[Rfam]
RNA: Small nucleolar RNA SNORA79
Organism: Acromyrmex echinatior
RNA sequence: AGACAUCUGUUCCUCUGACGAGGCCUUUUUUGCUUCGUCAGAUUUCAGAACGUCUUAAAAUAAAACUGGAUUGCUUCACCCAGAACUGUAUCUUGCAAUUACAUUGUCUGGCUUUUGCGGAUUCAUAUAAUA
Number, nucleotide and partner (000 for none) at each position: 001a055002g054003a053004c052005a000006u050007c000008u048009g000010u000011u000012c000013c000014u042015c041016u040017g039018a038019c000020g036021a035022g034023g033024c000025c000026u000027u000028u000029u000030u000031u000032g000033c023034u022035u021036c020037g000038u018039c017040a016041g015042a014043u000044u000045u000046c000047a000048g008049a000050a006051c000052g004053u003054c002055u001056u000057a000058a000059a000060a000061u000062a000063a000064a000065a000066c000067u000068g124069g123070a122071u121072u120073g000074c000075u000076u000077c000078a000079c000080c111081c110082a109083g108084a107085a105086c000087u103088g102089u101090a000091u000092c000093u000094u000095g000096c000097a000098a000099u000100u000101a089102c088103a087104u000105u085106g000107u084108c083109u082110g081111g080112c000113u000114u000115u000116u000117g000118c000119g000120g072121a071122u070123u069124c068125a000126u000127a000128u000129a000130a000131u000132a000